[Rfam]
RNA sequence: UAAGCAAAAAGGUAAACCCAUUCGAAAGAUGGAGACACAAAGCCACGGGUCUAAGGUUUCGAUGCUGAAUAAGGAAACUAUGAUAGCCGGGUUGCCAAA
Numbered sequence: 001u002a003a004g005c006a007a008a009a010a011g012g013u014a015a016a017c018c019c020a021u022u023c024g025a026a027a028g029a030u031g032g033a034g035a036c037a038c039a040a041a042g043c044c045a046c047g048g049g050u051c052u053a054a055g056g057u058u059u060c061g062a063u064g065c066u067g068a069a070u071a072a073g074g075a076a077a078c079u080a081u082g083a084u085a086g087c088c089g090g091g092u093u094g095c096c097a098a099a
Stems, first nucleotide, its partner, number of pairs: 012038002018032003022029002041093004046089003049084003056078004
Dot-bracket structure: ...........((....(((.((....)))))....))..((((.((((((....((((...............))))...)))..)))))))......